The family of this 165-nucleotide RNA sequence from Hydrogenivirga sp. 128-5-R1-1 is "6S / SsrS RNA". NCBI's taxonomy places the organism under Bacteria, Aquificota, Aquificia, Aquificales, Hydrogenivirga.
RNA sequence: AACCUCCUGCCCUGUGCGUGGCCCAGGGAUCAUCAUUGGGGCCUACAAGUGGGCUGUAAGGGAACCCGCCUUCGGAAGGGUCCACGAGGGCUCUCCGAGAGGGUACCCACCUUAGGAAGAGAGGCCCACCGGUAUCUCUGAAGGUCACGGCAGGGCGGGUCUUAA
Numbered sequence: 001a002a003c004c005u006c007c008u009g010c011c012c013u014g015u016g017c018g019u020g021g022c023c024c025a026g027g028g029a030u031c032a033u034c035a036u037u038g039g040g041g042c043c044u045a046c047a048a049g050u051g052g053g054c055u056g057u058a059a060g061g062g063a064a065c066c067c068g069c070c071u072u073c074g075g076a077a078g079g080g081u082c083c084a085c086g087a088g089g090g091c092u093c094u095c096c097g098a099g100a101g102g103g104u105a106c107c108c109a110c111c112u113u114a115g116g117a118a119g120a121g122a123g124g125c126c127c128a129c130c131g132g133u134a135u136c137u138c139u140g141a142a143g144g145u146c147a148c149g150g151c152a153g154g155g156c157g158g159g160u161c162u163u164a165a
Base pairs, nucleotide, nucleotide: 002163006159007158008157009156010155011154012153013152014151015150017149018148019147032133033132034131037128039127040126041125042124043123060108061107062106064104065103066102067101069099071098073097074096075095076094078092079091081090082089